[Rfam]
RNA sequence: AAGUUGAGUAGAAGCUGUCAGGUUCUUCUAGCAGAAGAACUGGGUCAUUGCUCAUUUA
Numbered sequence: 001a002a003g004u005u006g007a008g009u010a011g012a013a014g015c016u017g018u019c020a021g022g023u024u025c026u027u028c029u030a031g032c033a034g035a036a037g038a039a040c041u042g043g044g045u046c047a048u049u050g051c052u053c054a055u056u057u058a
Stems, first nucleotide, its partner, number of pairs: 005054006015043001019044001021041009